[Rfam]
RNA sequence: CUGUUUCUUGCUUCAACGGGGUUUGGAUGGAAUAG
Numbered sequence: 001c002u003g004u005u006u007c008u009u010g011c012u013u014c015a016a017c018g019g020g021g022u023u024u025g026g027a028u029g030g031a032a033u034a035g
Base pairs, nucleotide, nucleotide: 001035002034003033004032005031007030008029010028012027013026014025015024016023017021
A member of the RNA family "Iron response element I" from Lynx pardinus, 35 nucleotides long.
A reference for the family is Hentze et al. (1987), "Identification of the iron-responsive element for the translational regulation of human ferritin mRNA", Science.
Rfam links the family to the GO term response to iron ion.
Pairs were carried over by alignment from the consensus structure, which is taken from published work.